Shown here is an 85-nucleotide RNA from Clarias magur, a member of the family "mir-15 microRNA precursor family".
This family represents the related mir-15a and mir-15b sequences. In humans miR-15a and miR-16 are clustered within 0.5 kb at 13q14. This region has been shown to be deleted in more than half of B cell chronic lymphocytic leukaemias (CLL). Both miR-15a and miR-16 are deleted or down-regulated in more than two thirds of CLL cases.
RNA sequence: CCUUAGACUGCUAUAGCAGCGCAUCAUGGUUUUCAACAUUGCUAAAAAGGUGAAAACCAUAAUUUGCUGCUUUAGAGUUUUAAGG
Numbered sequence: 001c002c003u004u005a006g007a008c009u010g011c012u013a014u015a016g017c018a019g020c021g022c023a024u025c026a027u028g029g030u031u032u033u034c035a036a037c038a039u040u041g042c043u044a045a046a047a048a049g050g051u052g053a054a055a056a057c058c059a060u061a062a063u064u065u066g067c068u069g070c071u072u073u074a075g076a077g078u079u080u081u082a083a084g085g
Stems, first nucleotide, its partner, number of pairs: 001085006013073001015071007023063002026060010